[Rfam]
RNA: Small nucleolar RNA SNORD60
Organism: Maylandia zebra
RNA sequence: AGCCUGUGAUGACAAACUAAACAAUCUUUUCUGACACCUACUAUGAGAGCUGAGCUUCAGCUCCUGAUUCCAGCUUUUCUCUGAGGCUU
Numbered sequence: 001a002g003c004c005u006g007u008g009a010u011g012a013c014a015a016a017c018u019a020a021a022c023a024a025u026c027u028u029u030u031c032u033g034a035c036a037c038c039u040a041c042u043a044u045g046a047g048a049g050c051u052g053a054g055c056u057u058c059a060g061c062u063c064c065u066g067a068u069u070c071c072a073g074c075u076u077u078u079c080u081c082u083g084a085g086g087c088u089u
Base pairs, nucleotide, nucleotide: 001088002087003086004085049061050060051059052058053057